About this RNA
Shown here is a 79-nucleotide sequence from Juglans regia, a member of the family "Small nucleolar RNA R160". Rfam classes the family as a C/D-box small nucleolar RNA. NCBI's taxonomy places the organism under Eukaryota, Streptophytina, eudicotyledons, Fagales, Juglans.
RNA sequence: AGCAAAAUGAUGAAAUUCUUUUGUCUGAAUAUGAUGUAGAACCUCAUAUCAUAUUGGUCUUCAAAGUUCUCUGAUUGUU
Numbered sequence: 001a002g003c004a005a006a007a008u009g010a011u012g013a014a015a016u017u018c019u020u021u022u023g024u025c026u027g028a029a030u031a032u033g034a035u036g037u038a039g040a041a042c043c044u045c046a047u048a049u050c051a052u053a054u055u056g057g058u059c060u061u062c063a064a065a066g067u068u069c070u071c072u073g074a075u076u077g078u079u
Base pairs, nucleotide, nucleotide: 001079002078003077004076005075
snoR160 is a C/D box small nucleolar RNA, which acts as a methylation guide for 25S ribosomal RNA in plants. snoR160 has been alternatively named snoZ270 in rice. On this family, see Chen et al., Nucleic Acids Res 2003: "The high diversity of snoRNAs in plants: identification and comparative study of 120 snoRNA genes from Oryza sativa". The pairing is the family consensus, mapped onto this sequence. Its family is annotated with RNA processing and nucleolus in the Gene Ontology.